[Rfam]
RNA sequence: CUGGCUUCUCUUGAUUUCGUUGCGCCUGUGAGCCCGUAUGGAUCGUGGGCAGUGCCAAGAAUGUGAAGCAAAAGCGAUUGUUCCUCUCGCUAUCCGGCGCUGAAUUUUAUGAUGCGAUUGGACGUCGAGGAACUACAGUU
Numbered sequence: 001c002u003g004g005c006u007u008c009u010c011u012u013g014a015u016u017u018c019g020u021u022g023c024g025c026c027u028g029u030g031a032g033c034c035c036g037u038a039u040g041g042a043u044c045g046u047g048g049g050c051a052g053u054g055c056c057a058a059g060a061a062u063g064u065g066a067a068g069c070a071a072a073a074g075c076g077a078u079u080g081u082u083c084c085u086c087u088c089g090c091u092a093u094c095c096g097g098c099g100c101u102g103a104a105u106u107u108u109a110u111g112a113u114g115c116g117a118u119u120g121g122a123c124g125u126c127g128a129g130g131a132a133c134u135a136c137a138g139u140u
Base pairs, nucleotide, nucleotide: 001068002067004064005063009060010059011058012057013056018054019053021051022050033049034048035047038046039045040044080133081132082131083130084129085128086127088124089123093122094121095120096119097118101112103110
Shown here is a 140-nucleotide RNA from Panicum virgatum, a member of the family "Small nucleolar RNA snoR136".
Rfam classes the family as an H/ACA-box small nucleolar RNA.
Rfam links the family to the GO terms RNA processing and nucleolus.
The literature on the family includes a 2009 paper in Nucleic Acids Res by Chen and Wu, "Mining small RNA sequencing data: a new approach to identify small nucleolar RNAs in Arabidopsis".
A search with the family's covariance model found it, with a score of 51 bits.
Pairs were carried over by alignment from the consensus structure, which was predicted with mfold.
Rfam 15.1 lists 452 matches to the family in 212 species.